[Rfam]
RNA sequence: AUCGUUCAUCUCUUUCCUGGAGACGGAAGUAAGGAGUUAUAUCUCCUGAAGGAACGCGCC
Numbered sequence: 001a002u003c004g005u006u007c008a009u010c011u012c013u014u015u016c017c018u019g020g021a022g023a024c025g026g027a028a029g030u031a032a033g034g035a036g037u038u039a040u041a042u043c044u045c046c047u048g049a050a051g052g053a054a055c056g057c058g059c060c
Stems, first nucleotide, its partner, number of pairs: 003056005009023005026057001032047005
The family of this 60-nucleotide RNA sequence from Gloeocapsa sp. PCC 73106 is "Glutamine riboswitch aptamer (glnA leader)". The source organism's lineage runs through Bacteria, Bacillati, Cyanophyceae, Chroococcidiopsidaceae and Gloeocapsa. For this family Rfam cites "Structural and Dynamic Basis for Low-Affinity, High-Selectivity Binding of L-Glutamine by the Glutamine Riboswitch" (Ren et al., Cell Rep, 2015). It scores 58 bits against the family's covariance model.